[Rfam]
Nucleotides: 094
Base pairs, nucleotide, nucleotide: 008090009089010088011087012086014085015084016083021078022077023076024075025074026073027072028071029070032067033066035065036064037063038062039061041060042059043058
Number, partner (000 for none) and nucleotide at each position: 001000u002000u003000g004000c005000a006000a007000u008090a009089u010088u011087g012086a013000u014085a015084c016083a017000a018000a019000u020000u021078u022077g023076g024075g025074g026073u027072u028071u029070u030000u031000u032067a033066g034000c035065g036064g037063c038062a039061u040000u041060u042059g043058c044000c045000g046000g047000a048000a049000u050000u051000u052000u053000a054000u055000u056000a057000a058043g059042c060041a061039a062038u063037g064036c065035c066033c067032u068000u069000g070029g071028a072027a073026a074025u075024c076023c077022c078021a079000a080000a081000a082000a083016u084015g085014u086012u087011c088010a089009a090008u091000g092000a093000a094000a
Background: A member of the RNA family "mir-2788 microRNA precursor family" from Brassicogethes aeneus, 94 nucleotides long. Lineage of the source: Eukaryota > Ecdysozoa > Altocrustacea > Allotriocarida > Brassicogethes. Gene Ontology terms of the family: RISC complex and miRNA-mediated post-transcriptional gene silencing. The family has 5 seed sequences and 89 matches in Rfam 15.1.